Shown here is a 78-nucleotide RNA from Schistosoma japonicum, a member of the family "mir-3492 microRNA precursor family". The source organism's lineage runs through Eukaryota, Rhabditophora, Digenea, Strigeidida and Schistosoma. Its family is annotated with miRNA-mediated post-transcriptional gene silencing and RISC complex in the Gene Ontology. The family has 2 seed sequences and 21,496 matches in Rfam 15.1.

[Rfam]
Nucleotides: 078
Stems, first nucleotide, its partner, number of pairs: 002077005008071006016063002020061003024058007
Number, partner (000 for none) and nucleotide at each position: 001000a002077g003076c004075u005074u006073c007000c008071u009070g010069u011068a012067u013066c014000c015000g016063u017062g018000c019000u020061g021060a022059g023000a024058u025057u026056u027055c028054g029053u030052c031000u032000g033000u034000c035000a036000c037000c038000a039000g040000g041000c042000c043000a044000c045000c046000a047000g048000c049000a050000c051000u052030g053029a054028u055027g056026a057025g058024a059022c060021u061020c062017c063016a064000c065000a066013g067012a068011u069010a070009c071008g072000u073006g074005a075004a076003g077002c078000g